[Rfam]
The family of this 177-nucleotide RNA sequence from Ipomoea nil is "small nucleolar RNA snoR143". Pairs were carried over by alignment from the consensus structure, which was predicted with RNAalifold. The family has 3 seed sequences and 660 matches in Rfam 15.1. A search with the family's covariance model found it, with a score of 108 bits.

RNA sequence: UUGCACAAGCAAGCUAGGGAGGGCUUCGCGAGAGUUAAAAAAUGGCGACGCCCCAGCCGCUAUUGUGCAUAAAGGGAAAGCUGAGCUGUAGUCAGCGGCGGCCAGACAACCGCUGAGAUGGAUCCACAGAUGGAUUCUUUCAAAAUAGGACUUGUCUACUAAUUCCAUCUCACAUUU
Numbered sequence: 001u002u003g004c005a006c007a008a009g010c011a012a013g014c015u016a017g018g019g020a021g022g023g024c025u026u027c028g029c030g031a032g033a034g035u036u037a038a039a040a041a042a043u044g045g046c047g048a049c050g051c052c053c054c055a056g057c058c059g060c061u062a063u064u065g066u067g068c069a070u071a072a073a074g075g076g077a078a079a080g081c082u083g084a085g086c087u088g089u090a091g092u093c094a095g096c097g098g099c100g101g102c103c104a105g106a107c108a109a110c111c112g113c114u115g116a117g118a119u120g121g122a123u124c125c126a127c128a129g130a131u132g133g134a135u136u137c138u139u140u141c142a143a144a145a146u147a148g149g150a151c152u153u154g155u156c157u158a159c160u161a162a163u164u165c166c167a168u169c170u171c172a173c174a175u176u177u
Base pairs, nucleotide, nucleotide: 002069003068004067005066006065008061009060010059013057014056015055017053018052019051115171116170117169118168119167120166121165122164133153134152136150137149138148